[Rfam]
This 447-nucleotide sequence from Hyphomicrobium album belongs to the Rfam family "Bacterial RNase P class A".
RNA sequence: CCAGCUGGCCGGACGGCCGCUGCCGGAUUGCGGGCGUCUGUGGCCCAUCGAGCAAACCCGGUGGAGGAAAGUCCGGGCUCCAUGGAGACACGGUGACGGCUAACGGCCGCCGGGGGCGACCCCAGGGAAAGUGCCACAGAAAGCAAACCGCCUUCGGUUCGCCGGAGGUAAGGGUGAAAGGGUGCGGUAAGAGCGCACCGCGCGGCCGGCGACGGUCGUGGCAGGGCAAACCCCACCGGGAGCAAGACCAAAUAGGGAUGGCCGGGCGCGCGGCAACGCGGCGCCAGGUCCCGUCUUCAGACCCGCCAUCCGGGUUGGUUGCUUGAGGCGCUCAGCAAUGGGCGUCCCAGACGAAUGGCCGUCGCGGAGGGAAUCUUGGCCAACACUCGGCAAGCCGGUGUUGGGCUACCUUCCAGACAGAACCCGGCUUACAGGCCAGCUGGCAAU
Numbered sequence: 001c002c003a004g005c006u007g008g009c010c011g012g013a014c015g016g017c018c019g020c021u022g023c024c025g026g027a028u029u030g031c032g033g034g035c036g037u038c039u040g041u042g043g044c045c046c047a048u049c050g051a052g053c054a055a056a057c058c059c060g061g062u063g064g065a066g067g068a069a070a071g072u073c074c075g076g077g078c079u080c081c082a083u084g085g086a087g088a089c090a091c092g093g094u095g096a097c098g099g100c101u102a103a104c105g106g107c108c109g110c111c112g113g114g115g116g117c118g119a120c121c122c123c124a125g126g127g128a129a130a131g132u133g134c135c136a137c138a139g140a141a142a143g144c145a146a147a148c149c150g151c152c153u154u155c156g157g158u159u160c161g162c163c164g165g166a167g168g169u170a171a172g173g174g175u176g177a178a179a180g181g182g183u184g185c186g187g188u189a190a191g192a193g194c195g196c197a198c199c200g201c202g203c204g205g206c207c208g209g210c211g212a213c214g215g216u217c218g219u220g221g222c223a224g225g226g227c228a229a230a231c232c233c234c235a236c237c238g239g240g241a242g243c244a245a246g247a248c249c250a251a252a253u254a255g256g257g258a259u260g261g262c263c264g265g266g267c268g269c270g271c272g273g274c275a276a277c278g279c280g281g282c283g284c285c286a287g288g289u290c291c292c293g294u295c296u297u298c299a300g301a302c303c304c305g306c307c308a309u310c311c312g313g314g315u316u317g318g319u320u321g322c323u324u325g326a327g328g329c330g331c332u333c334a335g336c337a338a339u340g341g342g343c344g345u346c347c348c349a350g351a352c353g354a355a356u357g358g359c360c361g362u363c364g365c366g367g368a369g370g371g372a373a374u375c376u377u378g379g380c381c382a383a384c385a386c387u388c389g390g391c392a393a394g395c396c397g398g399u400g401u402u403g404g405g406c407u408a409c410c411u412u413c414c415a416g417a418c419a420g421a422a423c424c425c426g427g428c429u430u431a432c433a434g435g436c437c438a439g440c441u442g443g444c445a446a447u
Base pairs, nucleotide, nucleotide: 001443002442003441004440005439006438007437008436009435010434011432012363013362014361015360016359017358018357020064021063022062023061024060025059026058028056069430070429071428073427074426075425076424077423078242079241080240081239086297087296091238092237093236094235095234097109098108099107100106111125112123113122114121115120126233127232131231132230133227134226135225148173149172150169151168152167153166154165155164156163157162181199182198183197184196185195186194200222201220202219203218204217205216206215207214208213246320247319248318249317256311257310258309259308260307261306288303291300327346328345329344330343331342332341333340334339

The base pairs follow the family's consensus structure, which is taken from published work. The source organism's lineage runs through Bacteria, Pseudomonadati, Alphaproteobacteria, Hyphomicrobiales and Hyphomicrobium. It is annotated as a ribozyme.